Rfam assigns this 153-nucleotide RNA from Brochothrix thermosphacta to the family "glmS glucosamine-6-phosphate activated ribozyme aptamer".
[Rfam]
Nucleotides: 153
Stems, first nucleotide, its partner, number of pairs: 020039007048078005056067004079094005098143003103138002111128007
Number, partner (000 for none) and nucleotide at each position: 001000g002000c003000u004000u005000a006000a007000u008000u009000g010000c011000u012000a013000g014000c015000g016000c017000c018000a019000g020039u021038a022037c023036u024035u025034a026033u027000a028000g029000u030000u031000a032000a033026a034025u035024a036023a037022g038021u039020a040000g041000a042000c043000g044000a045000g046000g047000a048078g049077a050076a051075a052074g053000u054000u055000a056067u057066c058065g059064a060000g061000g062000a063000g064059u065058c066057g067056g068000c069000g070000g071000a072000u073000a074052c075051u076050u077049u078048c079094c080093g081092g082091c083090c084000u085000g086000u087000u088000g089000g090083g091082g092081u093080c094079g095000a096000u097000a098143u099142a100141c101000g102000a103138g104137g105000u106000u107000a108000a109000a110000a111128c112127a113126a114125g115124c116123a117122g118000g119000u120000g121000a122117c123116u124115g125114u126113u127112u128111g129000c130000a131000c132000a133000a134000g135000a136000a137104c138103c139000g140000a141100g142099u143098a144000a145000a146000c147000a148000a149000c150000g151000g152000u153000c
Rfam links the family to the GO terms regulation of gene expression and catalytic activity. It is annotated as a riboswitch.